[Rfam]
Nucleotides: 087
Base pairs, nucleotide, nucleotide: 003085004084005083007081008080009079010078011077013075014074015073016072017071019069020068021067022066023065024064025063026062027061028060029059030058031057032056033055034054035053036052037051038050039049041047
Number, partner (000 for none) and nucleotide at each position: 001000a002000u003085a004084c005083u006000c007081c008080c009079u010078c011077u012000g013075u014074a015073a016072a017071g018000u019069a020068a021067u022066a023065u024064a025063a026062g027061a028060c029059c030058u031057u032056u033055u034054a035053g036052a037051u038050c039049a040000g041047u042000a043000c044000u045000u046000u047041a048000g049039u050038g051037a052036u053035c054034u055033a056032a057031a058030a059029g060028g061027u062026c063025u064024u065023a066022u067021a068020u069019u070000a071017c072016u073015u074014u075013a076000c077011a078010g079009a080008g081007g082000u083005a084004g085003u086000a087000u
Overview
Rfam assigns this 87-nucleotide sequence from Aegilops tauschii to the family "MIR1120/MIR1122 microRNA precursor family". On this family, see Yao et al., Genome Biol 2007: "Cloning and characterization of microRNAs from wheat (Triticum aestivum L.)". Pairs were carried over by alignment from the consensus structure, which was predicted with RNAalifold.